RNA sequence: AAUACCUUUAAUCAAGUCCAGAGAGGCUUAGAAGGAACUCGGCACCCGCAAGUGAUUACUUGCGGCCAAAACCAUGCCUCCCGUCUAACUCUGGACGGGAGGUAUUUUUU
Numbered sequence: 001a002a003u004a005c006c007u008u009u010a011a012u013c014a015a016g017u018c019c020a021g022a023g024a025g026g027c028u029u030a031g032a033a034g035g036a037a038c039u040c041g042g043c044a045c046c047c048g049c050a051a052g053u054g055a056u057u058a059c060u061u062g063c064g065g066c067c068a069a070a071a072c073c074a075u076g077c078c079u080c081c082c083g084u085c086u087a088a089c090u091c092u093g094g095a096c097g098g099g100a101g102g103u104a105u106u107u108u109u110u
Stems, first nucleotide, its partner, number of pairs: 003037001005035005014029005046065008074105014